[Rfam]
RNA: MIR5200 microRNA precursor family
RNA sequence: CACGAAAGCCUUAGUGAAUACCUACACUAGUAAGUUCUUCUUUAUGUUGGAAGUGCUAGCGUUGUAGAUACUCCCUAAGGCUUGGGUG
Numbered sequence: 001c002a003c004g005a006a007a008g009c010c011u012u013a014g015u016g017a018a019u020a021c022c023u024a025c026a027c028u029a030g031u032a033a034g035u036u037c038u039u040c041u042u043u044a045u046g047u048u049g050g051a052a053g054u055g056c057u058a059g060c061g062u063u064g065u066a067g068a069u070a071c072u073c074c075c076u077a078a079g080g081c082u083u084g085g086g087u088g
Base pairs, nucleotide, nucleotide: 006083007082008081009080010079011078012077013076014075016073017072019070020069022067023066024065025064026063031058033057034056035055037053038052039051040050041049